A member of the RNA family "pemK RNA" from Petrocella atlantisensis, 97 nucleotides long.

[Rfam]
RNA sequence: AUAAUGAUACUUUUGCUUCGUCAUGACCAGAGUGAAAAUAGAACACCGCACGUUAUGAAAGCAACUGCUGUAGUGGGUAGAGGUGAAAUUCCUAUGA
Numbered sequence: 001a002u003a004a005u006g007a008u009a010c011u012u013u014u015g016c017u018u019c020g021u022c023a024u025g026a027c028c029a030g031a032g033u034g035a036a037a038a039u040a041g042a043a044c045a046c047c048g049c050a051c052g053u054u055a056u057g058a059a060a061g062c063a064a065c066u067g068c069u070g071u072a073g074u075g076g077g078u079a080g081a082g083g084u085g086a087a088a089u090u091c092c093u094a095u096g097a
Base pairs, nucleotide, nucleotide: 012094013064014063015062016061017060018059065080066079067078068076069075070074081093082092083091